[Rfam]
RNA: mir-181 microRNA precursor family
Organism: Puma concolor
RNA sequence: AAUGUGGUAUAAACAUUCAUCCUUCUGUGUGUGUGUGUGUGUAAACACACACACACACACACAGAAGGAUGAAUGUUUAUACCACAUUU
Numbered sequence: 001a002a003u004g005u006g007g008u009a010u011a012a013a014c015a016u017u018c019a020u021c022c023u024u025c026u027g028u029g030u031g032u033g034u035g036u037g038u039g040u041g042u043a044a045a046c047a048c049a050c051a052c053a054c055a056c057a058c059a060c061a062c063a064g065a066a067g068g069a070u071g072a073a074u075g076u077u078u079a080u081a082c083c084a085c086a087u088u089u
Stems, first nucleotide, its partner, number of pairs: 001089002004085005014075016031058009